[Rfam]
RNA sequence: UAUUUGCAUGAGCGAUAGAAAUGGCAUCCUUUUUUGCUGAUUUUUUUCAGCAUAAAAAGAUAUAAUGGAUAGCGCGUUUUUUG
Numbered sequence: 001u002a003u004u005u006g007c008a009u010g011a012g013c014g015a016u017a018g019a020a021a022u023g024g025c026a027u028c029c030u031u032u033u034u035u036g037c038u039g040a041u042u043u044u045u046u047u048c049a050g051c052a053u054a055a056a057a058a059g060a061u062a063u064a065a066u067g068g069a070u071a072g073c074g075c076g077u078u079u080u081u082u083g
Base pairs, nucleotide, nucleotide: 012075013074014073016071017070021066022065026061027060028059031056032055033054035052036051037050038049039048040047
The record is an 83-nucleotide RNA sequence from Polaribacter sp. KT25b, which matches "Flavo-1 RNA" in Rfam. By type it is a small RNA.